A member of the RNA family "Group II catalytic intron D1-D4-1" from Aidingimonas halophila, 81 nucleotides long.
NCBI's taxonomy places the organism under Bacteria, Pseudomonadati, Pseudomonadota, Halomonadaceae, Aidingimonas.
The base pairs follow the family's consensus structure.
A search with the family's covariance model found it, with a score of 51 bits.
For this family Rfam cites "The ins and outs of group II introns" (Bonen and Vogel, Trends Genet, 2001).
RNA sequence: GAGCGCUGGGCAACCGGUGGCGAUCGGUCGGCAGAAGUCAGCCGAGGGCAUAGUAGGGGCCAGUCUGUGGCGCCGAAGGCU
Numbered sequence: 001g002a003g004c005g006c007u008g009g010g011c012a013a014c015c016g017g018u019g020g021c022g023a024u025c026g027g028u029c030g031g032c033a034g035a036a037g038u039c040a041g042c043c044g045a046g047g048g049c050a051u052a053g054u055a056g057g058g059g060c061c062a063g064u065c066u067g068u069g070g071c072g073c074c075g076a077a078g079g080c081u
Stems, first nucleotide, its partner, number of pairs: 004019006038045002047081003056074002059071003